[Rfam]
Vertebrate telomerase RNA: a 437-nucleotide RNA sequence from Notechis scutatus.
A search with the family's covariance model found it, with a score of 136 bits.
Rfam's curators write: Telomerase is a ribonucleoprotein reverse transcriptase that synthesises telomeric DNA. Telomerase RNAs differ greatly in sequence and structure between vertebrates, ciliates and yeasts, but they share a 5' pseudoknot structure close to the template sequence. Vertebrate telomerase RNAs have a 3' H/ACA snoRNA-like domain.
Its Rfam clan is "Telomerase clan".
A reference for the family is Chen et al. (2000), "Secondary structure of vertebrate telomerase RNA", Cell.
RNA sequence: CGGCAGCGGUUGGGAGGUUUCCCUUCUUCACUAACCCUAACUCGCUGUCUCCGACGGCGGUUGGCCUCGUUCGCUGUUUUACUCGCUGACUUUCAGCGAACCGAAGCUCAGAAAAAACGUCAGCGAUUCGGGGGAAGCCUCCUCCUCCGCUAGCCGGCCACGCGUCGGUUCCCUCCUUUCUCCGCCUCGAGCGUGCUCGGCUCCCGAGCCGGCGCCGCCGCCCCCGCUCGAGGCCGCGGUCAGCUUGGUCCGGGCCGCUGCUGCCGCGAAGGGUUUAGCCCUGCCUGCCUCGGGGGAGGCGAGUCUCACCGAAAGGCGGAGGACGGCGGGGGAAAAAGUGCUCGCAAGGCCCGGGCGUGAGAGCAAAUACGGACGGCGGCCCCUGUCCCACUCGCCCUUGAGUAGUGGGGUGUGUGGCGGGCGCCGUCCGGACAUGC
Numbered sequence: 001c002g003g004c005a006g007c008g009g010u011u012g013g014g015a016g017g018u019u020u021c022c023c024u025u026c027u028u029c030a031c032u033a034a035c036c037c038u039a040a041c042u043c044g045c046u047g048u049c050u051c052c053g054a055c056g057g058c059g060g061u062u063g064g065c066c067u068c069g070u071u072c073g074c075u076g077u078u079u080u081a082c083u084c085g086c087u088g089a090c091u092u093u094c095a096g097c098g099a100a101c102c103g104a105a106g107c108u109c110a111g112a113a114a115a116a117a118c119g120u121c122a123g124c125g126a127u128u129c130g131g132g133g134g135a136a137g138c139c140u141c142c143u144c145c146u147c148c149g150c151u152a153g154c155c156g157g158c159c160a161c162g163c164g165u166c167g168g169u170u171c172c173c174u175c176c177u178u179u180c181u182c183c184g185c186c187u188c189g190a191g192c193g194u195g196c197u198c199g200g201c202u203c204c205c206g207a208g209c210c211g212g213c214g215c216c217g218c219c220g221c222c223c224c225c226g227c228u229c230g231a232g233g234c235c236g237c238g239g240u241c242a243g244c245u246u247g248g249u250c251c252g253g254g255c256c257g258c259u260g261c262u263g264c265c266g267c268g269a270a271g272g273g274u275u276u277a278g279c280c281c282u283g284c285c286u287g288c289c290u291c292g293g294g295g296g297a298g299g300c301g302a303g304u305c306u307c308a309c310c311g312a313a314a315g316g317c318g319g320a321g322g323a324c325g326g327c328g329g330g331g332g333a334a335a336a337a338g339u340g341c342u343c344g345c346a347a348g349g350c351c352c353g354g355g356c357g358u359g360a361g362a363g364c365a366a367a368u369a370c371g372g373a374c375g376g377c378g379g380c381c382c383c384u385g386u387c388c389c390a391c392u393c394g395c396c397c398u399u400g401a402g403u404a405g406u407g408g409g410g411u412g413u414g415u416g417g418c419g420g421g422c423g424c425c426g427u428c429c430g431g432a433c434a435u436g437c
Stems, first nucleotide, its partner, number of pairs: 005151005012144001013142005019136005069101008085124006091117003154354004159349001179322009212305001216301003222295005235268005241263004247256003270282004371429008380420002388417004395410004